[Rfam]
RNA sequence: AGGUUAAUGCAAUGUAAGUCGCUUUGGAUAAAAGUGUCUGCCAAAUUUCUAAAU
Numbered sequence: 001a002g003g004u005u006a007a008u009g010c011a012a013u014g015u016a017a018g019u020c021g022c023u024u025u026g027g028a029u030a031a032a033a034g035u036g037u038c039u040g041c042c043a044a045a046u047u048u049c050u051a052a053a054u
Stems, first nucleotide, its partner, number of pairs: 013043001014041003020036006